A member of the RNA family "Rhodo-rpoB RNA" from Tabrizicola sp. TH137, 94 nucleotides long. Pairs were carried over by alignment from the consensus structure, which is taken from published work. The organism belongs to Tabrizicola, within Bacteria. It is annotated as a cis-regulatory element.

RNA sequence: GAUUCGGGAGCCCCUCCGGUGGGACGGGGGGCAUGAAUGGGAUCUGACCCCCUUAUCGCAAUAGGCGCGCGCCCGUGGCCCCGACGGACCCGCG
Numbered sequence: 001g002a003u004u005c006g007g008g009a010g011c012c013c014c015u016c017c018g019g020u021g022g023g024a025c026g027g028g029g030g031g032c033a034u035g036a037a038u039g040g041g042a043u044c045u046g047a048c049c050c051c052c053u054u055a056u057c058g059c060a061a062u063a064g065g066c067g068c069g070c071g072c073c074c075g076u077g078g079c080c081c082c083g084a085c086g087g088a089c090c091c092g093c094g
Stems, first nucleotide, its partner, number of pairs: 001044005010032005016027003068094003071089001073087003
Dot-bracket structure: (((((....(((((.(((......)))))))).......))))).......................((((.(((.........))).)..)))